[Rfam]
RNA sequence: UAAGGGAUGCCGAAGUCGGGUCUCUGUCUCAAUGAACUUGCCGAUAAUUCGGGAGAUUGAAUAUGGCU
Numbered sequence: 001u002a003a004g005g006g007a008u009g010c011c012g013a014a015g016u017c018g019g020g021u022c023u024c025u026g027u028c029u030c031a032a033u034g035a036a037c038u039u040g041c042c043g044a045u046a047a048u049u050c051g052g053g054a055g056a057u058u059g060a061a062u063a064u065g066g067c068u
Base pairs, nucleotide, nucleotide: 003025004024005023006022007021008020010019011018012017032057033056037055038054039053041052042051043050044049
The record is a 68-nucleotide sequence, which matches "Repression of heat shock gene expression (ROSE) element" in Rfam. The family's RNA type in Rfam is RNA thermoregulator. The pairing is the family consensus, mapped onto this sequence. Rfam's curators put it in the seed alignment. Rfam links the family to the GO terms regulation of translation and response to temperature stimulus.